[Rfam]
RNA: Group II catalytic intron D1-D4-1
RNA sequence: AAACUAGUCAGUGAUGGCUAGCUGAAUCCGGUAGGAGUCAGCCGAGGUCAUAGUAAUCUGCCGUAUGACAGAUGAAGGAC
Number, nucleotide and partner (000 for none) at each position: 001a023002a000003a000004c021005u020006a019007g018008u017009c016010a015011g000012u000013g000014a000015u010016g009017g008018c007019u006020a005021g004022c000023u001024g000025a000026a000027u000028c000029c000030g000031g000032u000033a000034g000035g000036a000037g000038u045039c044040a000041g000042c000043c000044g039045a038046g000047g080048u079049c078050a000051u000052a000053g000054u000055a000056a073057u072058c071059u070060g069061c000062c000063g000064u000065a000066u000067g000068a000069c060070a059071g058072a057073u056074g000075a000076a000077g000078g049079a048080c047